Rfam assigns this 108-nucleotide RNA sequence from Streptomyces tardus to the family "Glycine riboswitch aptamer".

RNA sequence: GCAGAUCUGAAAAGCGGGCGUCCCCCGGGCGUCCCACCCAAGGUGCAAGCCGGGCCCCGUACAGGGGAUCAGGCGAACCUCUCAGGUUCCGAUGACAGAUGGGGAGGA
Numbered sequence: 001g002c003a004g005a006u007c008u009g010a011a012a013a014g015c016g017g018g019c020g021u022c023c024c025c026c027g028g029g030c031g032u033c034c035c036a037c038c039c040a041a042g043g044u045g046c047a048a049g050c051c052g053g054g055c056c057c058c059g060u061a062c063a064g065g066g067g068a069u070c071a072g073g074c075g076a077a078c079c080u081c082u083c084a085g086g087u088u089c090c091g092a093u094g095a096c097a098g099a100u101g102g103g104g105a106g107g108a
Stems, first nucleotide, its partner, number of pairs: 002103001005100005016034006036087003040082001043081001045079001049074002
Overview
A search with the family's covariance model found it, with a score of 35 bits.